[Rfam]
RNA: Fluoride riboswitch aptamer (crcB RNA motif)
RNA sequence: AGAGACGACGGCGAUGGAGCUCGCCGAAACCGCCCAGCGUUUUGAGCAUUAUCACAACGUAUUUGGCUGAUGGCUCCUACUGUUCC
Dot-bracket structure: .........[[[[..((((((]]]]......(((..............................)))....)))))).........